[Rfam]
RNA sequence: UUGCGAUAAAGGUAAACCUUCAGCGAUGAGGGGGCGCAAAGGAAAGGGUCUUGUAAUAGUGAACAGUGUCAGUAUAAGUAACAGACGCUUACAUUUAUAAUUGACACGAUAGAAACAAGAUGGCCUUACUACCGAA
Dot-bracket structure: ...........((...((((((....))))))...))..((.(.((((((((((............................................................)))))))..)))).))......